[Rfam]
Nucleotides: 075
Base pairs, nucleotide, nucleotide: 001021002020003019004018005017034069035068036067037066038065040063041062042061043060044059045058046057047056048055
Number, partner (000 for none) and nucleotide at each position: 001021g002020g003019g004018g005017a006000g007000a008000g009000g010000c011000u012000u013000a014000g015000a016000a017005u018004c019003c020002c021001c022000g023000c024000a025000g026000a027000c028000g029000g030000c031000g032000u033000g034069u035068u036067a037066a038065u039000a040063g041062c042061a043060g044059u045058g046057u047056c048055u049000u050000u051000g052000g053000c054000c055048g056047g057046g058045c059044a060043u061042u062041g063040u064000g065038g066037u067036u068035a069034g070000u071000g072000a073000a074000u075000c

This 75-nucleotide RNA sequence belongs to the Rfam family "L13-Bacteroidia ribosomal protein leader". Pairs were carried over by alignment from the consensus structure, which is taken from published work.